[Rfam]
RNA sequence: GACUGGAAUAUCAUGAUGAAAUACCAAUGCAACAUAGAGUCAAGCUCUGAGCCAAAAGGCAUGGACGAGACUUGCUUUUAUUAUUAUAACUGAUUUUUUAAUU
Number, nucleotide and partner (000 for none) at each position: 001g103002a102003c000004u100005g099006g098007a097008a096009u000010a000011u000012c000013a000014u000015g000016a000017u000018g000019a000020a000021a000022u000023a000024c000025c000026a000027a000028u000029g000030c000031a000032a000033c000034a000035u000036a000037g000038a000039g000040u000041c000042a000043a000044g000045c000046u000047c000048u000049g000050a000051g000052c000053c000054a000055a000056a000057a000058g000059g000060c000061a000062u000063g000064g000065a000066c000067g000068a000069g000070a000071c000072u000073u000074g000075c000076u000077u000078u000079u000080a000081u000082u000083a000084u000085u000086a000087u000088a000089a000090c000091u000092g000093a000094u000095u000096u008097u007098u006099u005100a004101a000102u002103u001